[Rfam]
RNA sequence: GGGAAGGCCAGCCGAUUGGUGCCGGCACCCGUCUCGAAAACGGCGUUGGGUCAACGCCCGUGUGGGUUCGACUCCCACCCUUCCC
Numbered sequence: 001g002g003g004a005a006g007g008c009c010a011g012c013c014g015a016u017u018g019g020u021g022c023c024g025g026c027a028c029c030c031g032u033c034u035c036g037a038a039a040a041c042g043g044c045g046u047u048g049g050g051u052c053a054a055c056g057c058c059c060g061u062g063u064g065g066g067u068u069c070g071a072c073u074c075c076c077a078c079c080c081u082u083c084c085c
Base pairs, nucleotide, nucleotide: 001085002084003083004082005081006080007079011026012025013024014023016021029043030042031041032040047060048059049058050057051056063077064076065075066074

Rfam assigns this 85-nucleotide RNA sequence from Dactylosporangium vinaceum to the family "Selenocysteine transfer RNA". Taxonomically the source falls in Dactylosporangium (Bacteria, Actinomycetota, Actinomycetes, Micromonosporales). It scores 47 bits against the family's covariance model. Its family is annotated with triplet codon-amino acid adaptor activity in the Gene Ontology. The family's consensus secondary structure is taken from published work.